Rfam assigns this 119-nucleotide sequence from Glycine soja to the family "MIR4374 microRNA precursor family".
Its family is annotated with miRNA-mediated post-transcriptional gene silencing and RISC complex in the Gene Ontology.
The source organism's lineage runs through Eukaryota, Spermatophyta, Mesangiospermae, Fabaceae and Glycine subgen. Soja.
[Rfam]
RNA sequence: UAAAGGCGGUGCUUACGUCAGCACCGUCUUUGAAAGUAUGCAUUCAAAGACGGUGCUUACCUCAGCAACGUCUUAGAAUGCCUACUUUCAAAGACGUUGCUGAGGUAAGCACCGUCUUU
Numbered sequence: 001u002a003a004a005g006g007c008g009g010u011g012c013u014u015a016c017g018u019c020a021g022c023a024c025c026g027u028c029u030u031u032g033a034a035a036g037u038a039u040g041c042a043u044u045c046a047a048a049g050a051c052g053g054u055g056c057u058u059a060c061c062u063c064a065g066c067a068a069c070g071u072c073u074u075a076g077a078a079u080g081c082c083u084a085c086u087u088u089c090a091a092a093g094a095c096g097u098u099g100c101u102g103a104g105g106u107a108a109g110c111a112c113c114g115u116c117u118u119u
Stems, first nucleotide, its partner, number of pairs: 004117004009112008018103003022099002025096014041080005047074006054067004